[Rfam]
RNA sequence: AAACCUAUAGUUUGCGCGCACCACGGGAUUUUCGUUCCCUAUGUUCGACUGAUUUUGUGGCUGCGAUGUUGUGUUUGCAUAUUUCGGUUUUUACCGAAUCUGGUAGAGACAUCUACCUUUCAUACUUGCUGUAUUUUUUGAAACCUAUCAAUCAAAAAAUUUGUCGUAGCACUGAGGUUUUCUCGGUGCUUUUUUUU
Numbered sequence: 001a002a003a004c005c006u007a008u009a010g011u012u013u014g015c016g017c018g019c020a021c022c023a024c025g026g027g028a029u030u031u032u033c034g035u036u037c038c039c040u041a042u043g044u045u046c047g048a049c050u051g052a053u054u055u056u057g058u059g060g061c062u063g064c065g066a067u068g069u070u071g072u073g074u075u076u077g078c079a080u081a082u083u084u085c086g087g088u089u090u091u092u093a094c095c096g097a098a099u100c101u102g103g104u105a106g107a108g109a110c111a112u113c114u115a116c117c118u119u120u121c122a123u124a125c126u127u128g129c130u131g132u133a134u135u136u137u138u139u140g141a142a143a144c145c146u147a148u149c150a151a152u153c154a155a156a157a158a159a160u161u162u163g164u165c166g167u168a169g170c171a172c173u174g175a176g177g178u179u180u181u182c183u184c185g186g187u188g189c190u191u192u193u194u195u196u197u
Stems, first nucleotide, its partner, number of pairs: 001054002004051001009050002018044003023040001025038005083098006102117006133161001135159003168190008
The family of this 197-nucleotide RNA sequence from Grimontia hollisae is "GcvB RNA". Pairs were carried over by alignment from the consensus structure, which is taken from published work. For this family Rfam cites "The gcvB gene encodes a small untranslated RNA involved in expression of the dipeptide and oligopeptide transport systems in Escherichia coli" (Urbanowski et al., Mol Microbiol, 2000). Taxonomically the source falls in Grimontia hollisae (Bacteria, Pseudomonadati, Vibrionaceae, Grimontia). From the family's description: The gcvB gene encodes a small untranslated RNA involved in expression of the dipeptide and oligopeptide transport systems in Escherichia coli. Included several unknown homologues in alignment (Bateman A pers obs). It base-pairs with SorC. This interaction triggers the degradation of GcvB by RNase E, alleviating the GcvB-mediated mRNA repression of other amino acid-related transport and metabolic genes.